A member of the RNA family "HNH endonuclease-associated RNA and ORF (HEARO) RNA" from Limnospira maxima, 234 nucleotides long.
The base pairs follow the family's consensus structure, which is taken from published work.
A search with the family's covariance model found it, with a score of 113 bits.
The organism belongs to Limnospira maxima, within Bacteria.
Rfam classes the family as a non-coding RNA gene.
The literature on the family includes a 2009 paper in Nature by Weinberg et al., "Exceptional structured noncoding RNAs revealed by bacterial metagenome analysis".
[Rfam]
RNA sequence: GUCAGCACCCCCGCCUGAAGCACGGGGGCUUCGUGCCUCCCGCAACAGAAUAGCUGACCAGCUAUAGCCGUAACUGGCUACGUUCAGAGCAAGAGUUAAAGUUCCUACCCUGGAAUGCGUGCUAGUUCCCGGCUCUAGAACCGAAUCGUUAAAUAGUUUUAAGGGGUUAAGACAGUGCGAUUUGGAGAGACUCUUCCUGUUAGGCAAUUCACUGAACAACGAUUGACAAAGGUC
Numbered sequence: 001g002u003c004a005g006c007a008c009c010c011c012c013g014c015c016u017g018a019a020g021c022a023c024g025g026g027g028g029c030u031u032c033g034u035g036c037c038u039c040c041c042g043c044a045a046c047a048g049a050a051u052a053g054c055u056g057a058c059c060a061g062c063u064a065u066a067g068c069c070g071u072a073a074c075u076g077g078c079u080a081c082g083u084u085c086a087g088a089g090c091a092a093g094a095g096u097u098a099a100a101g102u103u104c105c106u107a108c109c110c111u112g113g114a115a116u117g118c119g120u121g122c123u124a125g126u127u128c129c130c131g132g133c134u135c136u137a138g139a140a141c142c143g144a145a146u147c148g149u150u151a152a153a154u155a156g157u158u159u160u161a162a163g164g165g166g167u168u169a170a171g172a173c174a175g176u177g178c179g180a181u182u183u184g185g186a187g188a189g190a191c192u193c194u195u196c197c198u199g200u201u202a203g204g205c206a207a208u209u210c211a212c213u214g215a216a217c218a219a220c221g222a223u224u225g226a227c228a229a230a231g232g233u234c
Stems, first nucleotide, its partner, number of pairs: 001058006007051001009028002011025002015020001061227001063225001065219001066079004082217006093210004103139002109132002112129005122231002141185009153176002156173007